The record is a 109-nucleotide sequence from Sorghum bicolor, which matches "MIR5565 microRNA precursor family" in Rfam. Gene Ontology terms of the family: RISC complex and miRNA-mediated post-transcriptional gene silencing. Rfam 15.1 lists 3,346 matches to the family in 5 species. The source organism's lineage runs through Eukaryota, Streptophyta, Spermatophyta, Panicoideae and Sorghum.

RNA sequence: GUAGUCGGAUUUGCAUCAAUCCACAUGUGUUGGGGUGGAUUGGAGUGAAACUUAAACUAAAUUCCAUCCCAAUCCACUCCAACACAUGUGGAAUGAGGUGAAUCCGAGA
Number, nucleotide and partner (000 for none) at each position: 001g000002u000003a000004g000005u107006c106007g105008g104009a103010u102011u101012u100013g099014c098015a000016u096017c095018a094019a000020u092021c091022c090023a089024c088025a087026u086027g085028u084029g083030u082031u081032g080033g000034g000035g077036u076037g075038g074039a073040u072041u071042g070043g069044a000045g067046u066047g065048a000049a000050a000051c000052u000053u000054a000055a000056a000057c000058u000059a000060a000061a000062u000063u000064c000065c047066a046067u045068c000069c043070c042071a041072a040073u039074c038075c037076a036077c035078u000079c000080c032081a031082a030083c029084a028085c027086a026087u025088g024089u023090g022091g021092a020093a000094u018095g017096a016097g000098g014099u013100g012101a011102a010103u009104c008105c007106g006107a005108g000109a000